Record summary: This 388-nucleotide RNA from Mesobacillus zeae belongs to the Rfam family "Bacterial RNase P class B". The literature on the family includes a 1999 paper in Nucleic Acids Res by Brown, "The Ribonuclease P Database". Ribonuclease P (RNase P) is a ubiquitous endoribonuclease, found in archaea, bacteria and eukarya as well as chloroplasts and mitochondria. Its best characterised activity is the generation of mature 5'-ends of tRNAs by cleaving the 5'-leader elements of precursor-tRNAs. Clan: RNaseP clan. A search with the family's covariance model found it, with a score of 334 bits.

[Rfam]
RNA sequence: GCGUUCGGGUAACCGCUGCAGCUUGCUGCAGAGGAAAGUCCAUGCUCGCACAGGCUGAGAUGCCUGUAGUGUUCGUGCCUGGCCAAUUCAUAAGCCAGGGCAGCCGGGAAUCCUCCCGGCUGACGGCUGGGAAAAUGCCUAAGUCGGGUAACCGAUAUGGCAUGAAUACCUAUAAAAGUGCCACAGUGACGAAGUCUUUUCAGAAAUGGAAAGAGUGGAACGAGGUAAACCCCGCGAGCGAGAAACCCAAAUAAUGGUAGGGGAACUUUCUCGGAGGAAAUGAACGAAGAGAAGGACAGGCCGCCUGGUCUGUAGAUAGAUGGUUACCGCCUCAGUGCGAGACUCUGAGUCGCUUGCAGCACCGAGGAACAAAACAUGGCUUACAGAA
Numbered sequence: 001g002c003g004u005u006c007g008g009g010u011a012a013c014c015g016c017u018g019c020a021g022c023u024u025g026c027u028g029c030a031g032a033g034g035a036a037a038g039u040c041c042a043u044g045c046u047c048g049c050a051c052a053g054g055c056u057g058a059g060a061u062g063c064c065u066g067u068a069g070u071g072u073u074c075g076u077g078c079c080u081g082g083c084c085a086a087u088u089c090a091u092a093a094g095c096c097a098g099g100g101c102a103g104c105c106g107g108g109a110a111u112c113c114u115c116c117c118g119g120c121u122g123a124c125g126g127c128u129g130g131g132a133a134a135a136u137g138c139c140u141a142a143g144u145c146g147g148g149u150a151a152c153c154g155a156u157a158u159g160g161c162a163u164g165a166a167u168a169c170c171u172a173u174a175a176a177a178g179u180g181c182c183a184c185a186g187u188g189a190c191g192a193a194g195u196c197u198u199u200u201c202a203g204a205a206a207u208g209g210a211a212a213g214a215g216u217g218g219a220a221c222g223a224g225g226u227a228a229a230c231c232c233c234g235c236g237a238g239c240g241a242g243a244a245a246c247c248c249a250a251a252u253a254a255u256g257g258u259a260g261g262g263g264a265a266c267u268u269u270c271u272c273g274g275a276g277g278a279a280a281u282g283a284a285c286g287a288a289g290a291g292a293a294g295g296a297c298a299g300g301c302c303g304c305c306u307g308g309u310c311u312g313u314a315g316a317u318a319g320a321u322g323g324u325u326a327c328c329g330c331c332u333c334a335g336u337g338c339g340a341g342a343c344u345c346u347g348a349g350u351c352g353c354u355u356g357c358a359g360c361a362c363c364g365a366g367g368a369a370c371a372a373a374a375c376a377u378g379g380c381u382u383a384c385a386g387a388a
Base pairs, nucleotide, nucleotide: 004388005387006386007384008328009327010326011325012324013323014322016031017030018029019028020027021026036382037381038380040379041378042377043376044375045242046241047240048239049238050067051066052065053064054063055062073237074236075235076234077233078099079098080097081096082095083094100124101122102121103120104119105118106117107116108115109114125232126231128172129171130170131169136162137161138160139159143156144155145154146153147152178230179229180226181225182224195214196213197212198211199210200209201208202207246262247261248260266295267294268293269292270291271290272289296313297312298311299310300309301308330367331366332365333364335362336361337360338359